[Rfam]
RNA sequence: ACUCGACUUCAGGGCGGGGUGAAAUUCCCCACCGGUGGUAUUUUUAUUAACGAUUCUUCAUUCAAUGAGUCUUUGAUAAAAGAGCCCACGAGCGCCUAACUCAUUUUUUACUUAUGUAUUAGGGUCAAGCAGAUUUGGUGAGACGCCAAAGCCGACGGUUAAAGUCCGGAUGGAAGAAGAUCGAUA
Dot-bracket structure: ..((((((((......(((.......))).[[((((((...............................................))))..((...................................))...(((((.......)))))..)).(((.....]]))).......)))).))))..
RNA: FMN riboswitch aptamer (RFN element)
Organism: Psychromonas algicola